Source information:
Rfam assigns this 48-nucleotide sequence to the family "ssnA RNA". Rfam classes the family as a cis-regulatory element.
[Rfam]
RNA sequence: GCACUUACGGCUGUAACGAAGUGCUUCGCGCACGGGCCGGACGUUCUG
Numbered sequence: 001g002c003a004c005u006u007a008c009g010g011c012u013g014u015a016a017c018g019a020a021g022u023g024c025u026u027c028g029c030g031c032a033c034g035g036g037c038c039g040g041a042c043g044u045u046c047u048g
Stems, first nucleotide, its partner, number of pairs: 008039005021033004
Pairs were carried over by alignment from the consensus structure, which is taken from published work. It is one of the family's seed sequences.